[Rfam]
RNA sequence: GCAUUGGUUUAGAUUUAUGGCAGGCCUGUCCCCCUGGGCCUGUCAUAGAGUCCCAUGCCAGAGCAAACCAGCCCUGAACCAUUGCCUGGCCUCUGCCCAUAGGCUGCAUACACUAGAGUGGUUUGACAGAG
Numbered sequence: 001g002c003a004u005u006g007g008u009u010u011a012g013a014u015u016u017a018u019g020g021c022a023g024g025c026c027u028g029u030c031c032c033c034c035u036g037g038g039c040c041u042g043u044c045a046u047a048g049a050g051u052c053c054c055a056u057g058c059c060a061g062a063g064c065a066a067a068c069c070a071g072c073c074c075u076g077a078a079c080c081a082u083u084g085c086c087u088g089g090c091c092u093c094u095g096c097c098c099a100u101a102g103g104c105u106g107c108a109u110a111c112a113c114u115a116g117a118g119u120g121g122u123u124u125g126a127c128a129g130a131g
Base pairs, nucleotide, nucleotide: 001058002057003056004055006052007051008050015048016047017046018045019044020043022041023040024039025037026036069125070124071123073121074120081114087106088105089104090103091102092101
RNA: Small nucleolar RNA SNORA42/SNORA80 family
Organism: Cervus hanglu